Iron response element I: a 35-nucleotide sequence from Octodon degus. The family's RNA type in Rfam is cis-regulatory element. On this family, see Hentze et al., Science 1987: "Identification of the iron-responsive element for the translational regulation of human ferritin mRNA". The source organism's lineage runs through Eukaryota, Dipnotetrapodomorpha, Theria, Hystricomorpha and Octodon.
[Rfam]
RNA sequence: CGGCCUCCUGCUUCAACAGUGCUUGGACGAAGCCA
Numbered sequence: 001c002g003g004c005c006u007c008c009u010g011c012u013u014c015a016a017c018a019g020u021g022c023u024u025g026g027a028c029g030a031a032g033c034c035a
Stems, first nucleotide, its partner, number of pairs: 002034003006031001008029001010028001012027005017021001